RNA sequence: AAUGGGACCUGCAGGUAUCAACUGUGGACAAAUGAAAAAUGCCUUUGUCUGCAAAUUGCAGUGAUCCUACAUAAACAUGGAGGUCUCUGUCUGGCUUAGCACAGCUGGCUAAGUUUGAUCGUUCCCCUCCAUACAAG
Number, nucleotide and partner (000 for none) at each position: 001a000002a000003u000004g067005g066006g065007a000008c000009c061010u060011g059012c058013a000014g000015g000016u000017a000018u000019c000020a000021a000022c000023u053024g052025u051026g050027g049028a048029c047030a000031a000032a000033u000034g046035a045036a044037a000038a000039a000040u000041g000042c000043c000044u036045u035046u034047g029048u028049c027050u026051g025052c024053a023054a000055a000056u000057u000058g012059c011060a010061g009062u000063g000064a000065u006066c005067c004068u000069a000070c000071a000072u000073a000074a000075a000076c000077a000078u000079g130080g129081a128082g127083g126084u000085c000086u000087c121088u000089g119090u118091c117092u000093g115094g114095c113096u112097u111098a110099g109100c000101a000102c000103a000104g000105c000106u000107g000108g000109c099110u098111a097112a096113g095114u094115u093116u000117g091118a090119u089120c000121g087122u000123u000124c000125c000126c083127c082128u081129c080130c079131a000132u000133a000134c000135a000136a000137g000
This 137-nucleotide sequence from Myotis davidii belongs to the Rfam family "Small Cajal body specific RNA 3". scaRNAs are a specific class of small nuclear RNAs which localise to the Cajal bodies and guide the modification of RNA polymerase II transcribed spliceosomal RNAs U1, U2, U4, U5 and U12. Pairs were carried over by alignment from the consensus structure, which was predicted with RNAalifold. The organism belongs to Myotis, within Eukaryota. It scores 137 bits against the family's covariance model. Gene Ontology terms of the family: Cajal body, RNA processing and nucleolus. The family's RNA type in Rfam is small Cajal body RNA.